RNA: Histone 3' UTR stem-loop
Organism: Odobenus rosmarus
RNA sequence: CCAAAGGCUCUUUUCAGAGCCACCCAAUUAGUUCCAACAAAAGCGG
Numbered sequence: 001c002c003a004a005a006g007g008c009u010c011u012u013u014u015c016a017g018a019g020c021c022a023c024c025c026a027a028u029u030a031g032u033u034c035c036a037a038c039a040a041a042a043g044c045g046g
Stems, first nucleotide, its partner, number of pairs: 006021006